[Rfam]
RNA sequence: UGCGAUCCCCAUUAGUGGUGUAGUCCCCCAACCUAGAGCUACUUUACCAUAUUCCAAAUUC
Numbered sequence: 001u002g003c004g005a006u007c008c009c010c011a012u013u014a015g016u017g018g019u020g021u022a023g024u025c026c027c028c029c030a031a032c033c034u035a036g037a038g039c040u041a042c043u044u045u046a047c048c049a050u051a052u053u054c055c056a057a058a059u060u061c
Stems, first nucleotide, its partner, number of pairs: 017045002020042005026036001
Source information: Shown here is a 61-nucleotide RNA from Zingiber officinale, a member of the family "Plastid-psbN 5UTR RNA". Rfam's curators write: Plastid psbN is a non-coding RNA (ncRNA) recognised in plastids. The literature on the family includes a 2023 paper in Plant Commun by Richter et al., "Retrograde signaling in plants: A critical review focusing on the GUN pathway and beyond". The family's RNA type in Rfam is cis-regulatory element. The base pairs follow the family's consensus structure, which was predicted with LocARNA.